A member of the RNA family "U2 spliceosomal RNA" from Camelus bactrianus, 191 nucleotides long. The base pairs follow the family's consensus structure, which is taken from published work. The literature on the family includes a 1997 paper in Nucleic Acids Res by Zwieb, "The uRNA database". By type it is a spliceosomal small nuclear RNA. It scores 167 bits against the family's covariance model. Rfam describes the family as follows. U2 is a small nuclear RNA (snRNA) component of the spliceosome (involved in pre-mRNA splicing). Complementary binding between U2 snRNA (in an area lying towards the 5' end but 3' to hairpin I) and the branchpoint sequence (BPS) of the intron results the bulging out of an unpaired adenosine, on the BPS, which initiates a nucleophilic attack at the intronic 5' splice site, thus starting the first of two transesterification reactions that mediate splicing. The organism belongs to Camelus, within Eukaryota.

RNA sequence: GUCGCUUCUCGGCCUUUUGGCUAAGAUCAAGUGUAGUAUCUGCUCUUAUCAGUUUAACAUCUGAUACGUCCUCUAUCCGAGGACAACAUACUAAGUGGAUUUUUGGAGCAGGGAGUUGGAAUAGGAGCUUGCUCCGUCCACUCCACGCAACGACCUGGUAUUGCAGUACUUUCAGAAACGGUGAAAAACAA
Numbered sequence: 001g002u003c004g005c006u007u008c009u010c011g012g013c014c015u016u017u018u019g020g021c022u023a024a025g026a027u028c029a030a031g032u033g034u035a036g037u038a039u040c041u042g043c044u045c046u047u048a049u050c051a052g053u054u055u056a057a058c059a060u061c062u063g064a065u066a067c068g069u070c071c072u073c074u075a076u077c078c079g080a081g082g083a084c085a086a087c088a089u090a091c092u093a094a095g096u097g098g099a100u101u102u103u104u105g106g107a108g109c110a111g112g113g114a115g116u117u118g119g120a121a122u123a124g125g126a127g128c129u130u131g132c133u134c135c136g137u138c139c140a141c142u143c144c145a146c147g148c149a150a151c152g153a154c155c156u157g158g159u160a161u162u163g164c165a166g167u168a169c170u171u172u173c174a175g176a177a178a179c180g181g182u183g184a185a186a187a188a189c190a191a
Stems, first nucleotide, its partner, number of pairs: 007026003011022004047066006068084006112144005118138002124135004148183002151180002155175004